[Rfam]
RNA: Small nucleolar RNA SNORD35
Organism: Otus sunia
RNA sequence: GGCACGUGAUGCUGUUCUCUCACGAUGGUCUGCCGAGCCCCGGGCCGGGGCUCUGACGACAGCGCCAACGGCUUUGCUGAUGCCAAAGG
Numbered sequence: 001g002g003c004a005c006g007u008g009a010u011g012c013u014g015u016u017c018u019c020u021c022a023c024g025a026u027g028g029u030c031u032g033c034c035g036a037g038c039c040c041c042g043g044g045c046c047g048g049g050g051c052u053c054u055g056a057c058g059a060c061a062g063c064g065c066c067a068a069c070g071g072c073u074u075u076g077c078u079g080a081u082g083c084c085a086a087a088g089g
Base pairs, nucleotide, nucleotide: 001084002083003082004081